RNA sequence: GCCCAAAUCGCACGUGCCUGUGGUCGUGUGUCGGUGGGCGGGGAUCCGGACAAGAGGCCGGUUAACCGCCAGCAUAGAACCGGCAGCCGGAGGCGAACCGGCGAACUCCGUCUCUGCGGAGGAUCGCGACUUAAAGCAACGACGGACCGGGCUUUU
Numbered sequence: 001g002c003c004c005a006a007a008u009c010g011c012a013c014g015u016g017c018c019u020g021u022g023g024u025c026g027u028g029u030g031u032c033g034g035u036g037g038g039c040g041g042g043g044a045u046c047c048g049g050a051c052a053a054g055a056g057g058c059c060g061g062u063u064a065a066c067c068g069c070c071a072g073c074a075u076a077g078a079a080c081c082g083g084c085a086g087c088c089g090g091a092g093g094c095g096a097a098c099c100g101g102c103g104a105a106c107u108c109c110g111u112c113u114c115u116g117c118g119g120a121g122g123a124u125c126g127c128g129a130c131u132u133a134a135a136g137c138a139a140c141g142a143c144g145g146a147c148c149g150g151g152c153u154u155u156u
Base pairs, nucleotide, nucleotide: 001152002151003150004149008142009141010140015138016137017136022131023130024129025128026127037070038069039068040067041066046061047060048059049058080101081100082099083098102126103125106121107120108119109118110117111116
RNA: Alphaproteobacterial sRNA ar45
Organism: Methylocystis sp. B8